[Rfam]
RNA sequence: CGGACAACAUCGCGGAUGGAGGCGGGGGACCCACCGGUCCACCGAAACAGGACCUGGGGCCGUUCGCGGCCCCUUGGGGUGAAGCCGAAGUCGCCAACCGGCGAUACCGGCCGGGCUACCUCUCCAGCCCGAACCCGACAGCUGACCUCGCGGGCGUGGCAGAGAGGACAU
Dot-bracket structure: (...(...............)((((((....((.........................................))(((.....(((....................)))..((((..........))))...))).........)))))).)..................
Numbered sequence: 001c002g003g004a005c006a007a008c009a010u011c012g013c014g015g016a017u018g019g020a021g022g023c024g025g026g027g028g029a030c031c032c033a034c035c036g037g038u039c040c041a042c043c044g045a046a047a048c049a050g051g052a053c054c055u056g057g058g059g060c061c062g063u064u065c066g067c068g069g070c071c072c073c074u075u076g077g078g079g080u081g082a083a084g085c086c087g088a089a090g091u092c093g094c095c096a097a098c099c100g101g102c103g104a105u106a107c108c109g110g111c112c113g114g115g116c117u118a119c120c121u122c123u124c125c126a127g128c129c130c131g132a133a134c135c136c137g138a139c140a141g142c143u144g145a146c147c148u149c150g151c152g153g154g155c156g157u158g159g160c161a162g163a164g165a166g167g168a169c170a171u
Stems, first nucleotide, its partner, number of pairs: 001153001005021001022151006032076002077136003085110003113130004